[Rfam]
RNA: Bacterial RNase P class A
Nucleotides: 355
Stems, first nucleotide, its partner, number of pairs: 001351010012320007020042002023039006047338003051335005056224004063257004068220005073087005088102001089100004103215002108213002110209002125154002127150003133146005162180006181204001182202003185198005228277004238268006248262005284303008
Number, partner (000 for none) and nucleotide at each position: 001351g002350g003349a004348g005347u006346u007345g008344g009343c010342c011000a012320g013319g014318c015317a016316a017315u018314c019000g020042c021041c022000g023039c024038u025037u026036u027035c028034g029000u030000u031000u032000u033000g034028c035027g036026a037025a038024a039023g040000g041021g042020g043000a044000g045000g046000a047338a048337a049336g050000u051335c052334c053333g054332g055331g056224c057223u058222c059221c060000a061000u062000a063257g064256g065255g066254c067000a068220g069219g070218g071217u072216g073087c074086c075085a076084g077083a078000u079000a080000a081000c082000g083077u084076c085075u086074g087073g088102g089100c090099g091098g092097c093000g094000c095000g096000a097092g098091c099090c100089g101000a102088c103215g104214a105000c106000a107000a108213g109212u110209g111208c112000a113000g114000c115000a116000g117000a118000g119000a120000g121000a122000a123000g124000a125154c126153c127150g128149c129148c130000u131000a132000a133146g134145c135144g136143c137142a138000g139000c140000a141000a142137u143136g144135c145134g146133c147000c148129g149128g150127u151000a152000a153126g154125g155000g156000u157000g158000a159000a160000a161000g162180g163179g164178u165177g166176c167175g168000g169000u170000a171000a172000g173000a174000g175167c176166g177165c178164a179163c180162c181204g182202c183201g184200c185198g186197c187196c188195u189194g190000g191000c192000a193000a194189c195188a196187g197186g198185u199000u200184g201183u202182g203000g204181c205000g206000a207000g208111g209110u210000a211000a212109a213108c214104u215103c216072c217071a218070c219069c220068c221059g222058g223057a224056g225000c226000a227000a228277g229276a230275c231274c232000a233000a234000a235000u236000a237000g238268g239267c240266c241265c242264c243263u244000a245000u246000a247000a248262c249261g250260u251259g252258c253000g254066g255065c256064c257063c258252g259251c260250a261249u262248g263243g264242g265241g266240g267239g268238c269000g270000g271000g272000u273000a274231g275230g276229u277228u278000g279000c280000u281000u282000g283000a284303g285302c286301c287300a288299g289298u290297g291296a292000g293000c294000g295000a296291u297290u298289a299288c300287u301286g302285g303284c304000c305000u306000a307000g308000a309000c310000g311000a312000a313000u314018g315017a316016u317015u318014g319013c320012c321000c322000u323000c324000g325000a326000c327000a328000g329000a330000a331055c332054c333053c334052g335051g336049c337048u338047u339000a340000c341000a342010g343009g344008c345007c346006a347005a348004c349003u350002c351001c352000a353000c354000c355000u